[Rfam]
Shown here is a 123-nucleotide RNA sequence, a member of the family "Plastid-psbA-1 3UTR RNA".
Plastid psbA-1 is a non-coding RNA (ncRNA) present in plastids.
The family is grouped with related families in Rfam's "Plastid-psbA 3UTR RNA clan".
By type it is a cis-regulatory element.
RNA sequence: UCGAAGCUCCAUCUACAAAUGGAUAAAAUUUCGUUUUUCAUUUAGUUAGUGUAUACGAGCUUUUGAAAGUAAAGGAGCAGUAACGGUUUCUUAACAGAACAAGAAAUGGGUUAUUGCUCCUUU
Numbered sequence: 001u002c003g004a005a006g007c008u009c010c011a012u013c014u015a016c017a018a019a020u021g022g023a024u025a026a027a028a029u030u031u032c033g034u035u036u037u038u039c040a041u042u043u044a045g046u047u048a049g050u051g052u053a054u055a056c057g058a059g060c061u062u063u064u065g066a067a068a069g070u071a072a073a074g075g076a077g078c079a080g081u082a083a084c085g086g087u088u089u090c091u092u093a094a095c096a097g098a099a100c101a102a103g104a105a106a107u108g109g110g111u112u113a114u115u116g117c118u119c120c121u122u123u
Base pairs, nucleotide, nucleotide: 008023009022010021011020012019071123072122073121074120075119076118077117078116079115080114081113082112083111086107088105089104090103091102092101